[Rfam]
Shown here is a 156-nucleotide RNA sequence from Streptomyces solincola, a member of the family "Streptomyces sRNA scr5239". The literature on the family includes a 2012 paper in Microbiology by Vockenhuber and Suess, "Streptomyces coelicolor sRNA scr5239 inhibits agarase expression by direct base pairing to the dagA coding region". Its family is annotated with mRNA binding and negative regulation of translation in the Gene Ontology. Lineage of the source: Bacteria > Bacillati > Actinomycetes > Kitasatosporales > Streptomyces. It is annotated as a small RNA.

RNA sequence: CUUCCAUCCUCCCCGCACAGGAGGAUGGGACGGGGUCCCGGUGCUCUCUGCCCUGACUGCGCCGAGACCUCAUCCACGGCCAUGGGACCGCACACCCGAUGGCCGGGAACUCCGGGCUGCGGUGCCCCGGCGGGUUGAGGGUCCCGCCCCGGGCGC
Numbered sequence: 001c002u003u004c005c006a007u008c009c010u011c012c013c014c015g016c017a018c019a020g021g022a023g024g025a026u027g028g029g030a031c032g033g034g035g036u037c038c039c040g041g042u043g044c045u046c047u048c049u050g051c052c053c054u055g056a057c058u059g060c061g062c063c064g065a066g067a068c069c070u071c072a073u074c075c076a077c078g079g080c081c082a083u084g085g086g087a088c089c090g091c092a093c094a095c096c097c098g099a100u101g102g103c104c105g106g107g108a109a110c111u112c113c114g115g116g117c118u119g120c121g122g123u124g125c126c127c128c129g130g131c132g133g134g135u136u137g138a139g140g141g142u143c144c145c146g147c148c149c150c151g152g153g154c155g156c
Stems, first nucleotide, its partner, number of pairs: 003029004008024005032071005039064003043060002045056002077105006084097003109123003113119002129148006
Dot-bracket structure: ..((((.(((((.......))))).))))..(((((..(((.((((........))..)).)))..))))).....((((((.(((........)))..))))))...(((.((...)).))).....((((((........))))))........